[Rfam]
The family of this 175-nucleotide RNA from Kluyveromyces lactis is "Small nucleolar RNA snR8". The family is grouped with related families in Rfam's "SNORA56 clan". The sequence is in the family's curated seed alignment.
Nucleotides: 175
Stems, first nucleotide, its partner, number of pairs: 016074002019070002028060002031057002034053005090169005097162003109153003113149007121142001
Number, partner (000 for none) and nucleotide at each position: 001000a002000c003000g004000a005000a006000a007000c008000a009000u010000a011000u012000u013000a014000a015000u016074g017073c018000c019070u020069u021000c022000u023000a024000u025000u026000c027000a028060c029059u030000g031057u032056g033000c034053c035052a036051u037050c038049u039000g040000a041000u042000a043000c044000a045000c046000c047000g048000u049038a050037g051036a052035u053034g054000a055000a056032c057031a058000g059029a060028g061000g062000g063000g064000a065000a066000a067000a068000g069020a070019a071000c072000g073017g074016c075000u076000a077000g078000a079000u080000g081000a082000a083000a084000a085000u086000u087000c088000u089000a090169u091168c092167c093166g094165c095000g096000a097162g098161c099160g100000u101000a102000c103000c104000u105000c106000a107000u108000a109153c110152u111151g112000a113149u114148u115147a116146a117145a118144g119143u120000a121142c122000u123000u124000a125000a126000c127000u128000a129000u130000u131000u132000u133000u134000c135000a136000u137000c138000a139000a140000u141000u142121g143119g144118c145117u146116u147115u148114a149113a150000u151111u152110g153109g154000u155000a156000g157000c158000u159000g160099c161098g162097u163000g164000a165094g166093c167092g168091g169090g170000a171000c172000a173000u174000u175000c